[Rfam]
RNA: Proteobacterial sRNA psRNA2
Organism: Sulfuriferula sp. AH1
RNA sequence: GGGUUACUCCUUGGCGCUUGCGCGCUUUGUUUGAUAAAGAUUCGCACCUAUAUCAAACCGGGUAACCUCACCUUUGGCAAGGCCAUACUGUCAGAUCAAGUCGGAACUACUACAAAGCUCCCCGAAUACCAUUUCAUCUCACAUUCUUGAAAAUUCACAAAACUUUAAUAAAAGAUUCAUUGGCUUGAAAUAGUUU
Dot-bracket structure: (((((((.((...((((....))))...((((((((.((........)).)))))))).))))))))).((...(((...((..((...(((.(((...))).).))......(............)...)).))...)))..................((...(((((((....)).))))).))......))..